[Rfam]
RNA: c-di-AMP riboswitch aptamer (ydaO/yuaA leader)
Organism: Paenibacillus sp. FSL H8-0548
Nucleotides: 154
Stems, first nucleotide, its partner, number of pairs: 012138003018031003032134006048119003056097007100113002
Number, partner (000 for none) and nucleotide at each position: 001000g002000u003000a004000a005000a006000a007000a008000a009000a010000c011000a012138g013137c014136c015000u016000a017000a018031u019030u020029c021000c022000c023000u024000a025000u026000g027000g028000g029020g030019a031018a032134a033133c034132g035131g036130g037129g038000g039000a040000a041000c042000c043000a044000c045000u046000u047000u048119g049118g050117g051000u052000g053000a054000a055000u056097u057096g058095a059094u060093u061092c062091c063000g064000a065000u066000g067000u068000c069000u070000g071000a072000u073000c074000c075000a076000u077000u078000u079000u080000g081000c082000a083000g084000c085000g086000u087000c088000u089000g090000a091062g092061g093060a094059a095058u096057c097056a098000u099000a100113g101112g102000g103000a104000g105000c106000c107000u108000u109000c110000a111000a112101c113100c114000g115000a116000a117050c118049c119048c120000c121000a122000c123000a124000g125000c126000u127000a128000a129037c130036c131035u132034c133033g134032u135000c136014g137013g138012c139000c140000u141000u142000g143000g144000a145000a146000g147000g148000a149000g150000c151000u152000u153000c154000a